[Rfam]
RNA sequence: AAAUGUUACAGCUUUUUUAGAAUUUGUCUAGCAGGUUUUCCAGUCCUCACUGGAAAACUGCC
Dot-bracket structure: .................................(((((((((((....))))))))...)))
A member of the RNA family "U7 small nuclear RNA" from Microcebus murinus, 62 nucleotides long. Lineage of the source: Eukaryota > Vertebrata > Amniota > Euarchontoglires > Microcebus. Rfam's curators write: Animal histone pre-mRNAs are spliced by a different mechanism than nuclear pre-mRNAs and self-splicing introns. The base pairs follow the family's consensus structure, which was predicted with PFOLD. A search with the family's covariance model found it, with a score of 63 bits. For this family Rfam cites "U7 snRNAs: a computational survey" (Marz et al., Genomics Proteomics Bioinformatics, 2007).